This 75-nucleotide RNA from Culex quinquefasciatus belongs to the Rfam family "mir-10 microRNA precursor family". NCBI's taxonomy places the organism under Eukaryota, Bilateria, Ecdysozoa, Culicinae, Culex pipiens complex. The literature on the family includes a 2001 paper in Science by Lee and Ambros, "An extensive class of small RNAs in Caenorhabditis elegans".

Nucleotides: 075
Stems, first nucleotide, its partner, number of pairs: 002073004011064001016060003020056011
Number, partner (000 for none) and nucleotide at each position: 001000c002073u003072a004071c005070a006000u007000c008000u009000a010000c011064c012000c013000u014000g015000u016060a017059g018058a019000u020056c021055c022054g023053a024052a025051u026050u027049u028048g029047u030046u031000u032000g033000a034000a035000u036000a037000u038000a039000a040000a041000c042000a043000a044000g045000c046030g047029a048028c049027a050026a051025a052024u053023u054022c055021g056020g057000u058018u059017c060016u061000a062000g063000a064011g065000a066000g067000g068000u069000u070005u071004g072003u073002g074000u075000g